[Rfam]
RNA: Small nucleolar RNA SNORA72
Organism: Sorex araneus
RNA sequence: CUGCGAAUACUCUCACUGUUCUGAUUUUGUAAUAAUCAGGACAGGCUAAAUGUUCGCUAUAAUAAGACUAUGCAUGUGUGUCCAGACCCAGUUUUUACCCACCUAGGUCUGGUCUUAGAAAUGCUGGUGAUGGGG
Numbered sequence: 001c002u003g004c005g006a007a008u009a010c011u012c013u014c015a016c017u018g019u020u021c022u023g024a025u026u027u028u029g030u031a032a033u034a035a036u037c038a039g040g041a042c043a044g045g046c047u048a049a050a051u052g053u054u055c056g057c058u059a060u061a062a063u064a065a066g067a068c069u070a071u072g073c074a075u076g077u078g079u080g081u082c083c084a085g086a087c088c089c090a091g092u093u094u095u096u097a098c099c100c101a102c103c104u105a106g107g108u109c110u111g112g113u114c115u116u117a118g119a120a121a122u123g124c125u126g127g128u129g130a131u132g133g134g135g
Stems, first nucleotide, its partner, number of pairs: 003057003016044011067128004072124002082112007090104002